[Rfam]
RNA sequence: GGGUGUCGCAUUGCACGGUGCAGUGGGCAGGUUCAAGCGCAGGUCGGGCCGCCGCG
Number, nucleotide and partner (000 for none) at each position: 001g000002g000003g000004u000005g028006u027007c026008g000009c025010a024011u023012u022013g000014c000015a000016c000017g000018g000019u000020g000021c000022a012023g011024u010025g009026g007027g006028c005029a000030g000031g000032u000033u000034c000035a000036a000037g000038c056039g055040c054041a000042g053043g052044u051045c000046g000047g000048g000049c000050c000051g044052c043053c042054g040055c039056g038